[Rfam]
RNA sequence: AUUUUGUUUAUAGGAACAAAGAGAAGCAGAUCUAUUCUAUACCCGAUAAGUAUCAAUACGCAAUGGG
Numbered sequence: 001a002u003u004u005u006g007u008u009u010a011u012a013g014g015a016a017c018a019a020a021g022a023g024a025a026g027c028a029g030a031u032c033u034a035u036u037c038u039a040u041a042c043c044c045g046a047u048a049a050g051u052a053u054c055a056a057u058a059c060g061c062a063a064u065g066g067g
Base pairs, nucleotide, nucleotide: 002021003020005018006017007016008015009014042067043066044065050059051058052057
Shown here is a 67-nucleotide sequence from Lamprocapnos spectabilis, a member of the family "Plastid-clpP 5UTR RNA". The source organism's lineage runs through Eukaryota, Euphyllophyta, Spermatophyta, Fumarioideae and Lamprocapnos. The literature on the family includes a 2023 paper in Plant Commun by Richter et al., "Retrograde signaling in plants: A critical review focusing on the GUN pathway and beyond". About the family: Plastid clpP is a non-coding RNA (ncRNA) recognised in plastids. It was found in the prime untranslated region (5UTR) of a protease complex subunit (clpP) in plastids, suggesting a posible cis-regulatory function.